[Rfam]
RNA sequence: GAACCUGUCUAGCGGAUAGGCAGCUGAGCGUAGAGAAGUCAGCCGACGUCAUAGUAUUAACCUUACAGUUAAGAAGGUC
Numbered sequence: 001g002a003a004c005c006u007g008u009c010u011a012g013c014g015g016a017u018a019g020g021c022a023g024c025u026g027a028g029c030g031u032a033g034a035g036a037a038g039u040c041a042g043c044c045g046a047c048g049u050c051a052u053a054g055u056a057u058u059a060a061c062c063u064u065a066c067a068g069u070u071a072a073g074a075a076g077g078u079c
Base pairs, nucleotide, nucleotide: 002025005023006022007021008020009019010018011017038047039046040045048079050077057072058071059070060069061068